[Rfam]
RNA sequence: GACCCGCAACGCUGGCGGAGUCGAAAAUCUGUUCACGACAAAUUGAUACUGCCUGGAUUCGUACGAACCGGGACGGAUGG
Numbered sequence: 001g002a003c004c005c006g007c008a009a010c011g012c013u014g015g016c017g018g019a020g021u022c023g024a025a026a027a028u029c030u031g032u033u034c035a036c037g038a039c040a041a042a043u044u045g046a047u048a049c050u051g052c053c054u055g056g057a058u059u060c061g062u063a064c065g066a067a068c069c070g071g072g073a074c075g076g077a078u079g080g
Stems, first nucleotide, its partner, number of pairs: 001022003004018004010014001049076003052072005058067003

Rfam assigns this 80-nucleotide RNA from Geobacter metallireducens to the family "pan motif". The sequence is in the family's curated seed alignment. The family's RNA type in Rfam is cis-regulatory element.